[Rfam]
RNA sequence: CUUACAGAGUUUAUUGGCAUUCUGUCCACCUCCCAAUCAUGGAAAAGAAACACAUUCUCUUUUACUUUCUGAUCUGAUCAUCCAUGGAGGUGGACAUACUGUCAACUGAGCUCUGCUUG
Dot-bracket structure: ..........(..((((((...(((((((((((....................................................)))))))))))...))))))...)..........